[Rfam]
Overview
Rfam assigns this 162-nucleotide RNA to the family "Clostridiales-1 RNA".
RNA sequence: GUAUGUAUGCAUGCAUGCAUGUAUGCAUGCAUGCAUGCAUGCAUGCAUGUUUGCAUGUAUGUAUCUAUGUAUGCAUGUAUGCAUGUAUGCAUGCAUGCAUGUAUGUAUGUAUGUAUGUAUGUAUGCAUGCAUGCAUGUAUGCAUGUAUGCAUGUAUGCAUGU
Numbered sequence: 001g002u003a004u005g006u007a008u009g010c011a012u013g014c015a016u017g018c019a020u021g022u023a024u025g026c027a028u029g030c031a032u033g034c035a036u037g038c039a040u041g042c043a044u045g046c047a048u049g050u051u052u053g054c055a056u057g058u059a060u061g062u063a064u065c066u067a068u069g070u071a072u073g074c075a076u077g078u079a080u081g082c083a084u085g086u087a088u089g090c091a092u093g094c095a096u097g098c099a100u101g102u103a104u105g106u107a108u109g110u111a112u113g114u115a116u117g118u119a120u121g122u123a124u125g126c127a128u129g130c131a132u133g134c135a136u137g138u139a140u141g142c143a144u145g146u147a148u149g150c151a152u153g154u155a156u157g158c159a160u161g162u
Stems, first nucleotide, its partner, number of pairs: 010069004016063012029050003033046005073126012088111010129162007139152004